[Rfam]
RNA sequence: GUAUUGCUAGGAGUUCCCUUUAAACACUUUAUGAAGCACCUUUUUGAGAGCUUAUGUGAAGUGUUUGGGGGAACUCUUAGUGUAAU
Numbered sequence: 001g002u003a004u005u006g007c008u009a010g011g012a013g014u015u016c017c018c019u020u021u022a023a024a025c026a027c028u029u030u031a032u033g034a035a036g037c038a039c040c041u042u043u044u045u046g047a048g049a050g051c052u053u054a055u056g057u058g059a060a061g062u063g064u065u066u067g068g069g070g071g072a073a074c075u076c077u078u079a080g081u082g083u084a085a086u
Stems, first nucleotide, its partner, number of pairs: 005082005011076010022066012035053002